[Rfam]
Annotation: MIR7486 microRNA precursor family: an 89-nucleotide RNA from Gossypium anomalum. The source organism's lineage runs through Eukaryota, Tracheophyta, eudicotyledons, rosids and Gossypium. Pairs were carried over by alignment from the consensus structure, which was predicted with RNAalifold.
RNA sequence: CUCAAGGAAGCGCUUUGCCUACGUGGACAGAAAACGCUUCCUUGAGGACGUGCUUUCUGUCCACGUAGGCAGAAAACGCUUCCUCAAGG
Numbered sequence: 001c002u003c004a005a006g007g008a009a010g011c012g013c014u015u016u017g018c019c020u021a022c023g024u025g026g027a028c029a030g031a032a033a034a035c036g037c038u039u040c041c042u043u044g045a046g047g048a049c050g051u052g053c054u055u056u057c058u059g060u061c062c063a064c065g066u067a068g069g070c071a072g073a074a075a076a077c078g079c080u081u082c083c084u085c086a087a088g089g
Stems, first nucleotide, its partner, number of pairs: 001088002005084008014075003017070005023064011035052003040047002